[Rfam]
Nucleotides: 071
Stems, first nucleotide, its partner, number of pairs: 001070001004067004010024004027041004047063005
Number, partner (000 for none) and nucleotide at each position: 001070c002000c003000u004067g005066g006065c007064g008000g009000a010024g011023c012022u013021u014000g015000a016000u017000a018000g019000u020000u021013a022012a023011g024010c025000a026000u027041c028040u029039c030038u031000u032000u033000u034000a035000c036000a037000c038030a039029g040028a041027g042000c043000u044000g045000a046000u047063a048062u049061u050060u051059g052000u053000g054000c055000a056000a057000a058000u059051c060050a061049a062048a063047u064007u065006g066005c067004c068000u069000u070001g071000a